[Rfam]
RNA sequence: CGAUGGGGUAGAGGCUGCGGCUUAUAAAAGUAGAACGAGUGAGAUACAAGAAUAUCGAUGAUUUCGUUUAAAAGGAUAAGUUGCCGAAGCAAGACGAUUUUCUUGGGAUCAUCUUGCUGGUGGUGUGACCGAAUAGGCACAUUACUGUCACGUUGCUGAAACAACGUGGGGAGCUAUCUUCGGA
Numbered sequence: 001c002g003a004u005g006g007g008g009u010a011g012a013g014g015c016u017g018c019g020g021c022u023u024a025u026a027a028a029a030g031u032a033g034a035a036c037g038a039g040u041g042a043g044a045u046a047c048a049a050g051a052a053u054a055u056c057g058a059u060g061a062u063u064u065c066g067u068u069u070a071a072a073a074g075g076a077u078a079a080g081u082u083g084c085c086g087a088a089g090c091a092a093g094a095c096g097a098u099u100u101u102c103u104u105g106g107g108a109u110c111a112u113c114u115u116g117c118u119g120g121u122g123g124u125g126u127g128a129c130c131g132a133a134u135a136g137g138c139a140c141a142u143u144a145c146u147g148u149c150a151c152g153u154u155g156c157u158g159a160a161a162c163a164a165c166g167u168g169g170g171g172a173g174c175u176a177u178c179u180u181c182g183g184a
Stems, first nucleotide, its partner, number of pairs: 006179006017084009033069007088118007096110004119146009129136001148169007

Rfam assigns this 184-nucleotide RNA sequence from Peribacillus asahii to the family "Lysine riboswitch aptamer". The match comes from Rfam's covariance-model search (124 bits). Taxonomically the source falls in Peribacillus (Bacteria, Bacillati, Bacilli, Caryophanales).